[Rfam]
RNA sequence: AGACGUGAAGUGAAUGGCGUUCGGACGCGGGUUCAAUUCCCGCCGGCUCCACCACUGGCAGCAUUGGCGUCGAGCUCAGCAUCCCCGGGGUCCGGAUCACGGGUGAGUUCCAGUGCUGCCAGUCAUGGGGCCGACCGGUUUCGACGGGCGCGCUGCAGCGGAUCGGACUACUCGGCAAGCGGAGCCGUAAACCAAGCAAAAUCGUAGACGCCAACGACGACUACAUCCGCGCCGCUGCUUAA
Numbered sequence: 001a002g003a004c005g006u007g008a009a010g011u012g013a014a015u016g017g018c019g020u021u022c023g024g025a026c027g028c029g030g031g032u033u034c035a036a037u038u039c040c041c042g043c044c045g046g047c048u049c050c051a052c053c054a055c056u057g058g059c060a061g062c063a064u065u066g067g068c069g070u071c072g073a074g075c076u077c078a079g080c081a082u083c084c085c086c087g088g089g090g091u092c093c094g095g096a097u098c099a100c101g102g103g104u105g106a107g108u109u110c111c112a113g114u115g116c117u118g119c120c121a122g123u124c125a126u127g128g129g130g131c132c133g134a135c136c137g138g139u140u141u142c143g144a145c146g147g148g149c150g151c152g153c154u155g156c157a158g159c160g161g162a163u164c165g166g167a168c169u170a171c172u173c174g175g176c177a178a179g180c181g182g183a184g185c186c187g188u189a190a191a192c193c194a195a196g197c198a199a200a201a202u203c204g205u206a207g208a209c210g211c212c213a214a215c216g217a218c219g220a221c222u223a224c225a226u227c228c229g230c231g232c233c234g235c236u237g238c239u240u241a242a
Stems, first nucleotide, its partner, number of pairs: 006161001017151003021147003027043005044133007173187004
Shown here is a 242-nucleotide RNA sequence, a member of the family "permuted transfer-messenger RNA".
By type it is a non-coding RNA gene.
Its family is annotated with RNA catabolic process in the Gene Ontology.
For this family Rfam cites "Phylogenetic analysis of tmRNA secondary structure" (Williams and Bartel, RNA, 1996).